RNA: CpoB/ybgF ICR thermometer
RNA sequence: UCGAAUCUCUAUCGUCUCUUAUGGUAAAGCCAAACCAGCGGAAUUGGGGCAUAAUGAACAGGCAUACGCGAAAAACCGUCGCGCAGUUUUGGUUUACUAAGAGAAUCAGAUGAACAGUAACUGCAGAUGCUAUUUGCUA
Number, nucleotide and partner (000 for none) at each position: 001u047002c046003g045004a044005a000006u000007c041008u040009c000010u000011a000012u000013c000014g035015u034016c000017u032018c000019u000020u029021a000022u000023g000024g000025u000026a000027a000028a000029g020030c000031c000032a017033a000034a015035c014036c000037a000038g000039c000040g008041g007042a000043a000044u004045u003046g002047g001048g000049g000050c000051a000052u000053a000054a138055u000056g000057a135058a134059c000060a000061g000062g130063c129064a000065u127066a000067c000068g124069c000070g000071a000072a000073a000074a000075a118076c117077c000078g115079u113080c112081g111082c000083g000084c000085a000086g106087u105088u104089u103090u102091g000092g000093u000094u000095u000096a000097c000098u000099a000100a000101g000102a090103g089104a088105a087106u086107c000108a000109g000110a000111u081112g080113a079114a000115c078116a000117g076118u075119a000120a000121c000122u000123g000124c068125a000126g000127a065128u000129g063130c062131u000132a000133u000134u058135u057136g000137c000138u054139a000